A member of the RNA family "Small nucleolar RNA SNORD121A" from Ptilonorhynchus violaceus, 81 nucleotides long. Taxonomically the source falls in Ptilonorhynchus (Eukaryota, Euteleostomi, Dipnotetrapodomorpha, Neoaves).
RNA sequence: GUUCAAAAUACAGUGAUGUCUUUUCCAAGUACAUAUCUGAUGGUUCUGUGUGGAAAAUGACUUGCUGUGUGAUUUUUGGAU
Numbered sequence: 001g002u003u004c005a006a007a008a009u010a011c012a013g014u015g016a017u018g019u020c021u022u023u024u025c026c027a028a029g030u031a032c033a034u035a036u037c038u039g040a041u042g043g044u045u046c047u048g049u050g051u052g053g054a055a056a057a058u059g060a061c062u063u064g065c066u067g068u069g070u071g072a073u074u075u076u077u078g079g080a081u
Base pairs, nucleotide, nucleotide: 001081002080003079004078005077006076008074010070011069
Gene Ontology terms of the family: nucleolus and RNA processing.